[Rfam]
A member of the RNA family "small nucleolar RNA snoR126" from Rosa chinensis, 115 nucleotides long. Its family is annotated with RNA processing and nucleolus in the Gene Ontology. The literature on the family includes a 2009 paper in Nucleic Acids Res by Chen and Wu, "Mining small RNA sequencing data: a new approach to identify small nucleolar RNAs in Arabidopsis". The family's consensus secondary structure was predicted with RNAalifold.
RNA sequence: GGGCGAUGAUGAUGAAACGUUUCUCGAUUCUGAGUUUAUGUUAUAUAUAUUUAUAUAUAUACAUGGACUAAUGCUUUUGCUGCUUGAUGACUGUAUUUAUGCGUGUCUGAGCCCU
Numbered sequence: 001g002g003g004c005g006a007u008g009a010u011g012a013u014g015a016a017a018c019g020u021u022u023c024u025c026g027a028u029u030c031u032g033a034g035u036u037u038a039u040g041u042u043a044u045a046u047a048u049a050u051u052u053a054u055a056u057a058u059a060u061a062c063a064u065g066g067a068c069u070a071a072u073g074c075u076u077u078u079g080c081u082g083c084u085u086g087a088u089g090a091c092u093g094u095a096u097u098u099a100u101g102c103g104u105g106u107c108u109g110a111g112c113c114c115u
Stems, first nucleotide, its partner, number of pairs: 001114004